RNA: mir-2774 microRNA precursor family
Organism: Bombyx mori
Nucleotides: 067
Base pairs, nucleotide, nucleotide: 005063006062010058012056015053016052017051020049022047023046024045026043027042028041
Number, partner (000 for none) and nucleotide at each position: 001000a002000u003000a004000c005063c006062a007000u008000u009000c010058g011000a012056a013000c014000c015053g016052u017051c018000g019000g020049u021000c022047u023046a024045c025000c026043g027042a028041g029000c030000a031000a032000u033000u034000u035000c036000a037000c038000c039000c040000a041028u042027u043026c044000a045024g046023u047022g048000a049020a050000a051017g052016a053015u054000c055000u056012u057000c058010c059000c060000u061000u062006u063005g064000u065000c066000g067000u